Annotation
A member of the RNA family "Small nucleolar RNA Z266" from Hibiscus trionum, 101 nucleotides long. Lineage of the source: Eukaryota > Viridiplantae > Streptophytina > Pentapetalae > Hibiscus. Rfam links the family to the GO terms nucleolus and RNA processing. The family's RNA type in Rfam is C/D-box small nucleolar RNA. For this family Rfam cites "The high diversity of snoRNAs in plants: identification and comparative study of 120 snoRNA genes from Oryza sativa" (Chen et al., Nucleic Acids Res, 2003). It scores 69 bits against the family's covariance model.

RNA sequence: GAAUGGCAAGAGUGAUGAAUCAAUUAGAUGUGUGAAUGGGGAUUGAAUAUUCUUUUUAACUCCCAUUCUGGAGGCAUUAAAUUAUGUCUGACUUGCCAUUG
Numbered sequence: 001g002a003a004u005g006g007c008a009a010g011a012g013u014g015a016u017g018a019a020u021c022a023a024u025u026a027g028a029u030g031u032g033u034g035a036a037u038g039g040g041g042a043u044u045g046a047a048u049a050u051u052c053u054u055u056u057u058a059a060c061u062c063c064c065a066u067u068c069u070g071g072a073g074g075c076a077u078u079a080a081a082u083u084a085u086g087u088c089u090g091a092c093u094u095g096c097c098a099u100u101g
Stems, first nucleotide, its partner, number of pairs: 002100009